[Rfam]
Nucleotides: 378
Base pairs, nucleotide, nucleotide: 001378002377003376004375008371009370010369013312014311015310016309017308018307019306023088024087025086026085036061037060038059039058040057041056098361099360100359101358102357107277108276109275110274144160166179167178168177169176170175182273183272184271185270186269188267203258204257205256313349314348315347316346317345318344319343
Number, partner (000 for none) and nucleotide at each position: 001378g002377c003376c004375c005000u006000u007000u008371a009370c010369a011000a012000c013312g014311c015310u016309g017308c018307g019306u020000u021000u022000c023088c024087a025086u026085g027000c028000u029000a030000c031000a032000a033000a034000c035000a036061g037060a038059g039058a040057g041056a042000c043000g044000a045000g046000c047000g048000c049000a050000a051000g052000c053000c054000a055000g056041u057040c058039u059038c060037u061036c062000a063000a064000g065000a066000u067000c068000c069000g070000u071000c072000g073000g074000a075000u076000c077000g078000c079000c080000u081000c082000u083000u084000g085026c086025a087024u088023g089000u090000g091000g092000g093000a094000a095000a096000u097000u098361c099360g100359g101358a102357g103000u104000a105000u106000g107277c108276u109275u110274c111000a112000c113000c114000u115000u116000c117000a118000c119000c120000u121000c122000g123000g124000u125000c126000c127000u128000c129000g130000c131000c132000a133000c134000c135000c136000g137000c138000u139000u140000g141000g142000a143000u144160c145000c146000g147000g148000u149000c150000u151000g152000c153000c154000a155000g156000c157000g158000a159000u160144g161000g162000c163000c164000c165000u166179g167178c168177g169176u170175c171000a172000u173000u174000c175170g176169a177168c178167g179166u180000u181000u182273g183272c184271a185270a186269a187000u188267g189000a190000c191000a192000u193000c194000a195000g196000a197000a198000a199000u200000c201000u202000c203258g204257g205256a206000g207000c208000c209000u210000g211000g212000g213000c214000c215000g216000c217000c218000g219000u220000g221000c222000a223000u224000a225000c226000c227000c228000g229000c230000a231000a232000g233000g234000g235000g236000a237000a238000g239000a240000c241000g242000g243000a244000u245000g246000g247000u248000c249000c250000c251000a252000g253000g254000u255000c256205u257204c258203u259000a260000u261000g262000g263000g264000a265000a266000g267188u268000c269186u270185u271184u272183g273182c274110g275109a276108g277107g278000c279000u280000u281000g282000u283000u284000g285000g286000g287000a288000c289000u290000a291000c292000a293000a294000c295000u296000g297000a298000a299000g300000u301000g302000c303000g304000a305000u306019a307018c308017g309016c310015g311014g312013c313349g314348u315347u316346u317345u318344g319343u320000c321000c322000u323000c324000u325000u326000g327000g328000g329000g330000u331000u332000c333000g334000c335000c336000u337000c338000g339000a340000g341000a342000g343319a344318c345317a346316g347315a348314a349313u350000a351000a352000c353000a354000c355000a356000a357102u358101u359100c360099c361098g362000a363000u364000c365000a366000u367000u368000c369010u370009g371008u372000a373000a374000a375004g376003g377002g378001c